Overview
The record is an 89-nucleotide RNA from Desulfocurvibacter africanus, which matches "c-di-GMP-I riboswitch aptamer" in Rfam. The base pairs follow the family's consensus structure, which is taken from published work. Lineage of the source: Bacteria > Pseudomonadati > Desulfovibrionaceae > Desulfocurvibacter africanus > Desulfocurvibacter africanus subsp. africanus. It scores 66 bits against the family's covariance model.
RNA sequence: ACUCGCUAAAGGCAAACCACUUUAAAGAGUGGGACGCAAAGUCUUCUGCCUACGUUCCCUUCGGGGAAUAUGGUCGUGAGGCUGCCGAG
Numbered sequence: 001a002c003u004c005g006c007u008a009a010a011g012g013c014a015a016a017c018c019a020c021u022u023u024a025a026a027g028a029g030u031g032g033g034a035c036g037c038a039a040a041g042u043c044u045u046c047u048g049c050c051u052a053c054g055u056u057c058c059c060u061u062c063g064g065g066g067a068a069u070a071u072g073g074u075c076g077u078g079a080g081g082c083u084g085c086c087g088a089g
Base pairs, nucleotide, nucleotide: 012037013036017032018031019030020029021028022027040083041082042081043080045079046078048074049073050072055068056067057066058065